[Rfam]
RNA: Molybdenum/Tungsten riboswitch aptamer (Moco RNA motif)
RNA sequence: AAAAUAAUAGAACUUCGAGUCGAACAUGCCUCAGACAUUAUUGUUAUGGCUGUACGACCUUUAGGGUUUGCCGGGAAACCGGCUUGCCUCCCAUUGCGGAAAGAAGAGAAACUUUUUGGGCU
Numbered sequence: 001a002a003a004a005u006a007a008u009a010g011a012a013c014u015u016c017g018a019g020u021c022g023a024a025c026a027u028g029c030c031u032c033a034g035a036c037a038u039u040a041u042u043g044u045u046a047u048g049g050c051u052g053u054a055c056g057a058c059c060u061u062u063a064g065g066g067u068u069u070g071c072c073g074g075g076a077a078a079c080c081g082g083c084u085u086g087c088c089u090c091c092c093a094u095u096g097c098g099g100a101a102a103g104a105a106g107a108g109a110a111a112c113u114u115u116u117u118g119g120g121c122u
Stems, first nucleotide, its partner, number of pairs: 003116002006113001013106004019058004024053003028050003034045004064089004070083005090099002